The record is a 65-nucleotide RNA from Caloramator sp. E03, which matches "Fluoride riboswitch aptamer (crcB RNA motif)" in Rfam. NCBI's taxonomy places the organism under Bacteria, Bacillati, Bacillota, Clostridiaceae, Caloramator. The match comes from Rfam's covariance-model search (41 bits).
RNA sequence: AAGUAAAUAGGUGAUGAAGUUCGCCAUAAAGCAUCUUGUUAAAGAUUGAUAACUUCUGCAAUAUU
Numbered sequence: 001a002a003g004u005a006a007a008u009a010g011g012u013g014a015u016g017a018a019g020u021u022c023g024c025c026a027u028a029a030a031g032c033a034u035c036u037u038g039u040u041a042a043a044g045a046u047u048g049a050u051a052a053c054u055u056c057u058g059c060a061a062u063a064u065u
Stems, first nucleotide, its partner, number of pairs: 010025004016056006033046004
Pairs were carried over by alignment from the consensus structure, which is taken from published work.